[Rfam]
RNA: Glycine riboswitch aptamer
RNA sequence: CUCUGGAGAGCGCGUUUAGGUACGCCACCAAAGGGGAAGACUCUACGAUCAAUAAGAGUUAAACUCUCAGGUAAAAGGACAGAG
Numbered sequence: 001c002u003c004u005g006g007a008g009a010g011c012g013c014g015u016u017u018a019g020g021u022a023c024g025c026c027a028c029c030a031a032a033g034g035g036g037a038a039g040a041c042u043c044u045a046c047g048a049u050c051a052a053u054a055a056g057a058g059u060u061a062a063a064c065u066c067u068c069a070g071g072u073a074a075a076a077g078g079a080c081a082g083a084g
Base pairs, nucleotide, nucleotide: 001084002083003082004081005080012025013024014023015022027072028071029070031067034066035065036064040059041058042057043056044055